A member of the RNA family "Purine riboswitch aptamer" from Anaerobacillus alkaliphilus, 102 nucleotides long. Lineage of the source: Bacteria > Bacillati > Bacillota > Caryophanales > Anaerobacillus.
RNA sequence: ACGUGAUCAUAAUACUUUCUUCAUAUAAUGUUGGGGAUAUGGCCCAGAAGUUUCUACCUAACGACCUUAAAUCGUUAGACUAUGAAGGAAAGCAACUAUACU
Numbered sequence: 001a002c003g004u005g006a007u008c009a010u011a012a013u014a015c016u017u018u019c020u021u022c023a024u025a026u027a028a029u030g031u032u033g034g035g036g037a038u039a040u041g042g043c044c045c046a047g048a049a050g051u052u053u054c055u056a057c058c059u060a061a062c063g064a065c066c067u068u069a070a071a072u073c074g075u076u077a078g079a080c081u082a083u084g085a086a087g088g089a090a091a092g093c094a095a096c097u098a099u100a101c102u
Stems, first nucleotide, its partner, number of pairs: 018088008029049001031047005058078007

The family's consensus secondary structure is taken from published work.